[Rfam]
RNA: Bacterial RNase P class B
RNA sequence: AAUUUCGAGCAGUCGCGGUUAGCCUAGAGCUAACUGAGGAAAGUCCACGCACACACAAGCUGAGAUUGCUUGUAGUGCCCGUAUUCAGCUCAAUAAGCUGGAGGAUAUAGUUUCUAUAUCACGGCGGAGAAAGUGCUAAGUCUUUGAUAUGCAUAAGUAUCCUGAAAGUGCCACAGUGACGAAGCAAGGUUGGAAACGACCUUGGUGGAACGAGGUAAACCCUGCGAGUGUGCAACCUAAAUUUGGUGGGGGCGUUUCGACCUAAGAAAAUGAACUAAAGGUCGGGUUAUUGCUAUUGCAAUAAAGAUAGAUGGCUGCUGAAGGUUGUUUUUUGCCAAGAGCAACUGGAACAGAACGUGGCUUAUAGAA
Numbered sequence: 001a002a003u004u005u006c007g008a009g010c011a012g013u014c015g016c017g018g019u020u021a022g023c024c025u026a027g028a029g030c031u032a033a034c035u036g037a038g039g040a041a042a043g044u045c046c047a048c049g050c051a052c053a054c055a056c057a058a059g060c061u062g063a064g065a066u067u068g069c070u071u072g073u074a075g076u077g078c079c080c081g082u083a084u085u086c087a088g089c090u091c092a093a094u095a096a097g098c099u100g101g102a103g104g105a106u107a108u109a110g111u112u113u114c115u116a117u118a119u120c121a122c123g124g125c126g127g128a129g130a131a132a133g134u135g136c137u138a139a140g141u142c143u144u145u146g147a148u149a150u151g152c153a154u155a156a157g158u159a160u161c162c163u164g165a166a167a168g169u170g171c172c173a174c175a176g177u178g179a180c181g182a183a184g185c186a187a188g189g190u191u192g193g194a195a196a197c198g199a200c201c202u203u204g205g206u207g208g209a210a211c212g213a214g215g216u217a218a219a220c221c222c223u224g225c226g227a228g229u230g231u232g233c234a235a236c237c238u239a240a241a242u243u244u245g246g247u248g249g250g251g252g253c254g255u256u257u258c259g260a261c262c263u264a265a266g267a268a269a270a271u272g273a274a275c276u277a278a279a280g281g282u283c284g285g286g287u288u289a290u291u292g293c294u295a296u297u298g299c300a301a302u303a304a305a306g307a308u309a310g311a312u313g314g315c316u317g318c319u320g321a322a323g324g325u326u327g328u329u330u331u332u333u334g335c336c337a338a339g340a341g342c343a344a345c346u347g348g349a350a351c352a353g354a355a356c357g358u359g360g361c362u363u364a365u366a367g368a369a
Base pairs, nucleotide, nucleotide: 004369005368006367007365008319009318010317011316012315013314014313016036017035018034019033020032021031041363042362043361045360046359047358048357049356050232051231052230053229054228055073056072057071058070059069060068080226081225082224083223084102085101086100087099088098089097103122104120105119106118107117108116109115123222124221126162127161128160133154134153135152136151140148141147142146168220169219170216171215172214185204186203187202188201189200190199191198192197236251237250238249255286257285258284259283260282261281262280287304288303289302290301291300292299323346324345325344326343327342328341329340330339331338